[Rfam]
RNA sequence: GAAUAAGGGCGUACGGCGGAUGCCUAGGCUUUCAGAGGCGAAGAAGGACGUGACAAGCUGCGAUAAGCUUCGGGGAGAUGCACAUAAUCUGUGAUCCGAAGAUUUCCGAAUGGGGCAACCCGGCACUGUGAAGCAGUGUCACCUUUUAAAGGAGCGAACCCAGGGAACUGAAACAUCUAAGUACCUGGAGGAAGAGAAAACAAUAGUGAUUCCCAAAGUAGUGGCGAGCGAAAUGGGACAAGCCCAAACCAAAGUUGUUUCGGCAAUUUUGGGGUUGUAGGACCACGAUAUCUGUUGUUCAAAGAACUUGAAUGGUUUUGGAAGAGCCAACCAAAGAGGGUGAAAGUCCCGUAAAGGUAAUAUUGAAUAAAUGGUAGUGGUAUCCUGAGUAGCGCGGGACACGAGAAAUCCUGUGUGAAUCUGUCAGAACCAUCUGAUAAGGCUAAAUACUCCUGAAAGACCGAUAGUGCACUAGUACCGUGAGGGAAAGGUGAAAAGUACCCUGAAUAAGGGAGUGAAAUAGUUCCUGAAACCGUACGCUUACAAG
Numbered sequence: 001g002a003a004u005a006a007g008g009g010c011g012u013a014c015g016g017c018g019g020a021u022g023c024c025u026a027g028g029c030u031u032u033c034a035g036a037g038g039c040g041a042a043g044a045a046g047g048a049c050g051u052g053a054c055a056a057g058c059u060g061c062g063a064u065a066a067g068c069u070u071c072g073g074g075g076a077g078a079u080g081c082a083c084a085u086a087a088u089c090u091g092u093g094a095u096c097c098g099a100a101g102a103u104u105u106c107c108g109a110a111u112g113g114g115g116c117a118a119c120c121c122g123g124c125a126c127u128g129u130g131a132a133g134c135a136g137u138g139u140c141a142c143c144u145u146u147u148a149a150a151g152g153a154g155c156g157a158a159c160c161c162a163g164g165g166a167a168c169u170g171a172a173a174c175a176u177c178u179a180a181g182u183a184c185c186u187g188g189a190g191g192a193a194g195a196g197a198a199a200a201c202a203a204u205a206g207u208g209a210u211u212c213c214c215a216a217a218g219u220a221g222u223g224g225c226g227a228g229c230g231a232a233a234u235g236g237g238a239c240a241a242g243c244c245c246a247a248a249c250c251a252a253a254g255u256u257g258u259u260u261c262g263g264c265a266a267u268u269u270u271g272g273g274g275u276u277g278u279a280g281g282a283c284c285a286c287g288a289u290a291u292c293u294g295u296u297g298u299u300c301a302a303a304g305a306a307c308u309u310g311a312a313u314g315g316u317u318u319u320g321g322a323a324g325a326g327c328c329a330a331c332c333a334a335a336g337a338g339g340g341u342g343a344a345a346g347u348c349c350c351g352u353a354a355a356g357g358u359a360a361u362a363u364u365g366a367a368u369a370a371a372u373g374g375u376a377g378u379g380g381u382a383u384c385c386u387g388a389g390u391a392g393c394g395c396g397g398g399a400c401a402c403g404a405g406a407a408a409u410c411c412u413g414u415g416u417g418a419a420u421c422u423g424u425c426a427g428a429a430c431c432a433u434c435u436g437a438u439a440a441g442g443c444u445a446a447a448u449a450c451u452c453c454u455g456a457a458a459g460a461c462c463g464a465u466a467g468u469g470c471a472c473u474a475g476u477a478c479c480g481u482g483a484g485g486g487a488a489a490g491g492u493g494a495a496a497a498g499u500a501c502c503c504u505g506a507a508u509a510a511g512g513g514a515g516u517g518a519a520a521u522a523g524u525u526c527c528u529g530a531a532a533c534c535g536u537a538c539g540c541u542u543a544c545a546a547g
Stems, first nucleotide, its partner, number of pairs: 007542010022527001023491002027462002029459007036451002038155002046107003049062003068101007077089003112121003122140007142152004159190001160188005170177002200207002210447001211238005221229002241444004249272007279386003283380004295370008304361001307356003313329004318325001332336001338350003392416008423438005478485002501513004
Shown here is a 547-nucleotide part of an RNA from Croceimicrobium hydrocarbonivorans, a member of the family "Bacterial large subunit ribosomal RNA". For this family Rfam cites "The comparative RNA web (CRW) site: an online database of comparative sequence and structure information for ribosomal, intron, and other RNAs" (Cannone et al., BMC Bioinformatics, 2002). It scores 2828 bits against the family's covariance model.